Small nucleolar RNA snoR26: a 91-nucleotide RNA sequence from Coptis chinensis.
RNA sequence: GCUGCAUCAAUGAUGUUUAAAUCCUUAUGUUAUCCUUGCACUUUGAUUGCCAGUGAAGAAACUUAUGGGGAAAGUUAAUUCUGAGAUGCUG
Numbered sequence: 001g002c003u004g005c006a007u008c009a010a011u012g013a014u015g016u017u018u019a020a021a022u023c024c025u026u027a028u029g030u031u032a033u034c035c036u037u038g039c040a041c042u043u044u045g046a047u048u049g050c051c052a053g054u055g056a057a058g059a060a061a062c063u064u065a066u067g068g069g070g071a072a073a074g075u076u077a078a079u080u081c082u083g084a085g086a087u088g089c090u091g
Stems, first nucleotide, its partner, number of pairs: 002091001004089005
The literature on the family includes a 2001 paper in RNA by Brown et al., "Multiple snoRNA gene clusters from Arabidopsis". It scores 87 bits against the family's covariance model. The organism belongs to Coptis, within Eukaryota.